Shown here is a 222-nucleotide RNA sequence from Hyaloperonospora arabidopsidis, a member of the family "Small nucleolar RNA U3".

RNA sequence: AUGAUCCUGUACUUUUACAGGAUCAUUUCUAUAGUACCUUCUUUUCUACUUGACUUUCCUAGUAGACAACCUCCUUAACUUUGAUGAUCGCAUUCGACUUCAUGCAUUGACUCGGGAUGUCGGUGGUAGUGCUGUGCUCUCUUUGGGACUGGCCUCCUCCGUUGAUGAACGUCCGCUGUCGUUAUUCCAAGACGGCGUGAGUGUGUGAAGUGAUAUGAGAAG
Numbered sequence: 001a002u003g004a005u006c007c008u009g010u011a012c013u014u015u016u017a018c019a020g021g022a023u024c025a026u027u028u029c030u031a032u033a034g035u036a037c038c039u040u041c042u043u044u045u046c047u048a049c050u051u052g053a054c055u056u057u058c059c060u061a062g063u064a065g066a067c068a069a070c071c072u073c074c075u076u077a078a079c080u081u082u083g084a085u086g087a088u089c090g091c092a093u094u095c096g097a098c099u100u101c102a103u104g105c106a107u108u109g110a111c112u113c114g115g116g117a118u119g120u121c122g123g124u125g126g127u128a129g130u131g132c133u134g135u136g137c138u139c140u141c142u143u144u145g146g147g148a149c150u151g152g153c154c155u156c157c158u159c160c161g162u163u164g165a166u167g168a169a170c171g172u173c174c175g176c177u178g179u180c181g182u183u184a185u186u187c188c189a190a191g192a193c194g195g196c197g198u199g200a201g202u203g204u205g206u207g208a209a210g211u212g213a214u215a216u217g218a219g220a221a222g
Stems, first nucleotide, its partner, number of pairs: 001043001003041002009037005019030004051068002056065002079222004097211012113171002122160002125157001131153003134149002137146002173199001174197007

By type it is a C/D-box small nucleolar RNA. Taxonomically the source falls in Hyaloperonospora arabidopsidis (Eukaryota, Oomycota, Peronosporomycetes, Peronosporaceae). The sequence is in the family's curated seed alignment. From the family's description: Small nucleolar RNAs (snoRNAs) are involved in the processing and modification of rRNA in the nucleolus. There are two main classes of snoRNAs: the box C/D class, and the box H/ACA class.